[Rfam]
RNA sequence: CUGUAGUGCAUUGCAGUUGCAUUGCGUGUAUCUGUCUGGUGCAAUGCCCCAGCAAUGCAGUACAG
Numbered sequence: 001c002u003g004u005a006g007u008g009c010a011u012u013g014c015a016g017u018u019g020c021a022u023u024g025c026g027u028g029u030a031u032c033u034g035u036c037u038g039g040u041g042c043a044a045u046g047c048c049c050c051a052g053c054a055a056u057g058c059a060g061u062a063c064a065g
Stems, first nucleotide, its partner, number of pairs: 001065004006061001007059008016050001019047001021045007

Rfam assigns this 65-nucleotide sequence from Sarcophilus harrisii to the family "mir-33 microRNA precursor family". NCBI's taxonomy places the organism under Eukaryota, Opisthokonta, Teleostomi, Dasyuridae, Sarcophilus.